[Rfam]
RNA sequence: AUGCCUUAAACUUAUGAGUAAGGAAAAUAACCAUUCAGGGUGAUGCCCAAAUCCUCACUGCUAAUGUGAGAAGAAUUUUUGAGCAGGUGAAAGUUGCCUCUAAGGUGACCCACCGACUUUGUAGGAUGCCUGUGAGUCAUGAUCUUCCCA
Number, nucleotide and partner (000 for none) at each position: 001a000002u000003g000004c023005c022006u021007u020008a019009a000010a000011c000012u000013u000014a000015u000016g000017a000018g000019u008020a007021a006022g005023g004024a000025a000026a000027a000028u000029a000030a000031c000032c000033a052034u051035u050036c000037a000038g047039g046040g000041u000042g000043a000044u000045g000046c039047c038048c000049a000050a035051a034052u033053c000054c070055u069056c068057a067058c066059u000060g000061c000062u000063a000064a000065u000066g058067u057068g056069a055070g054071a000072a000073g000074a000075a000076u000077u000078u000079u000080u000081g000082a000083g000084c000085a000086g148087g147088u000089g000090a000091a145092a000093g143094u142095u141096g140097c000098c000099u000100c134101u000102a000103a131104g130105g129106u128107g127108a000109c125110c124111c000112a122113c121114c000115g000116a000117c000118u000119u000120u000121g113122u112123a000124g110125g109126a000127u107128g106129c105130c104131u103132g000133u000134g100135a000136g000137u000138c000139a000140u096141g095142a094143u093144c000145u091146u000147c087148c086149c000150a000
RNA: U12 minor spliceosomal RNA
Organism: Carlito syrichta